[Rfam]
RNA sequence: CUGCCAUGAUGAUUCCAGUCUGGUUUCGCUUGUGUCAGAUCUCAGGUGAAGACACGUCUCUUGGCUGUCUGAGUGG
Numbered sequence: 001c002u003g004c005c006a007u008g009a010u011g012a013u014u015c016c017a018g019u020c021u022g023g024u025u026u027c028g029c030u031u032g033u034g035u036c037a038g039a040u041c042u043c044a045g046g047u048g049a050a051g052a053c054a055c056g057u058c059u060c061u062u063g064g065c066u067g068u069c070u071g072a073g074u075g076g
Stems, first nucleotide, its partner, number of pairs: 001076004
Dot-bracket structure: ((((....................................................................))))